[Rfam]
A member of the RNA family "Molybdenum/Tungsten riboswitch aptamer (Moco RNA motif)" from Ferrimonas aestuarii, 133 nucleotides long. The family has 160 seed sequences and 1,248 matches in Rfam 15.1.
RNA sequence: UAAGUGACUGUGAACCGAGCCUGGGCUGCCUAAGUGAAGAUAUGGCACUCAGGCCGUGGCAUUGUGCCACCAGGGUUGCGUAGAGAAAUCUCGCUUCCUCCCGAACUUGGAAAGGUAACAGAUGACCAAUUUA
Numbered sequence: 001u002a003a004g005u006g007a008c009u010g011u012g013a014a015c016c017g018a019g020c021c022u023g024g025g026c027u028g029c030c031u032a033a034g035u036g037a038a039g040a041u042a043u044g045g046c047a048c049u050c051a052g053g054c055c056g057u058g059g060c061a062u063u064g065u066g067c068c069a070c071c072a073g074g075g076u077u078g079c080g081u082a083g084a085g086a087a088a089u090c091u092c093g094c095u096u097c098c099u100c101c102c103g104a105a106c107u108u109g110g111a112a113a114g115g116u117a118a119c120a121g122a123u124g125a126c127c128a129a130u131u132u133a
Stems, first nucleotide, its partner, number of pairs: 004126001014116003019054007027047004034041002056070005073099003078094003082091003100110002